[Rfam]
RNA: Group II catalytic intron D1-D4-3
Organism: Hallella multisaccharivorax
RNA sequence: UCCGUGGCGAUGCGGAAUCUGAAGGAAGCCGGAGACAAACAUUGGGUCUGACGUACAGAAACAUGAUACCAAGGCCAAAGUCUGUGGGUAAGGCUGCAAAACAAGCAUGAUUCCUAUAACUAUACGGAACAGACAUGGUAAAUCAUGCAGACAUACAAUGGAAAGAAUAUGUU
Numbered sequence: 001u002c003c004g005u006g007g008c009g010a011u012g013c014g015g016a017a018u019c020u021g022a023a024g025g026a027a028g029c030c031g032g033a034g035a036c037a038a039a040c041a042u043u044g045g046g047u048c049u050g051a052c053g054u055a056c057a058g059a060a061a062c063a064u065g066a067u068a069c070c071a072a073g074g075c076c077a078a079a080g081u082c083u084g085u086g087g088g089u090a091a092g093g094c095u096g097c098a099a100a101a102c103a104a105g106c107a108u109g110a111u112u113c114c115u116a117u118a119a120c121u122a123u124a125c126g127g128a129a130c131a132g133a134c135a136u137g138g139u140a141a142a143u144c145a146u147g148c149a150g151a152c153a154u155a156c157a158a159u160g161g162a163a164a165g166a167a168u169a170u171g172u173u
Stems, first nucleotide, its partner, number of pairs: 001016006028173001030171002036165001040160005046152005062147006074139003080134006086114003093106003